This 174-nucleotide RNA sequence from Vallitalea guaymasensis belongs to the Rfam family "Group II catalytic intron D1-D4-3".
The family has 406 seed sequences and 4,274 matches in Rfam 15.1.
Group II introns are found in rRNA, tRNA and mRNA of organelles in fungi, plants and protists, and also in mRNA in bacteria.
A search with the family's covariance model found it, with a score of 146 bits.
RNA sequence: UCGUGAGUGAUUGCGAAUCUGAAGGAAGUCUGAGGGCAAAUCUCUGGUCUGACGAACAGAAAUCACAUAAAAGGCAUCUUUUGUGGAUAAGACUGCUUAACAAGUCGAAGUCCAAUAACUACUCAAAAACAAAAGAUGUAAAUGUGGCAGAUAGAUGGAGAGGAAGAUUGCGCU
Numbered sequence: 001u002c003g004u005g006a007g008u009g010a011u012u013g014c015g016a017a018u019c020u021g022a023a024g025g026a027a028g029u030c031u032g033a034g035g036g037c038a039a040a041u042c043u044c045u046g047g048u049c050u051g052a053c054g055a056a057c058a059g060a061a062a063u064c065a066c067a068u069a070a071a072a073g074g075c076a077u078c079u080u081u082u083g084u085g086g087a088u089a090a091g092a093c094u095g096c097u098u099a100a101c102a103a104g105u106c107g108a109a110g111u112c113c114a115a116u117a118a119c120u121a122c123u124c125a126a127a128a129a130c131a132a133a134a135g136a137u138g139u140a141a142a143u144g145u146g147g148c149a150g151a152u153a154g155a156u157g158g159a160g161a162g163g164a165a166g167a168u169u170g171c172g173c174u
Base pairs, nucleotide, nucleotide: 001016002015003014004013005012006011028174030172037166041161042160043159044158045157046156047152048151049150050149051148063147064146065145066144067143068142074139075138076137078135079134080133081132082131083130084129085113086112087111088110091106092105093104094103